[Rfam]
RNA sequence: UGUGGGAGCGAGAUAGGGACUUGCUGUCAUUUGAAAUUUUUUAACAAUCAGUCAGUCUUUUUCUCUCUCCUAUA
Dot-bracket structure: ((((((((.((((.(((((((.((((......................)))).))))))).)))).))))))))
Background:
The record is a 74-nucleotide RNA sequence from Ceratitis capitata, which matches "mir-14 microRNA precursor family" in Rfam. NCBI's taxonomy places the organism under Eukaryota, Neoptera, Dacinae, Ceratitis, Ceratitis. It scores 69 bits against the family's covariance model. For this family Rfam cites "Direct sequencing and expression analysis of a large number of miRNAs in Aedes aegypti and a multi-species survey of novel mosquito miRNAs" (Li et al., BMC Genomics, 2009).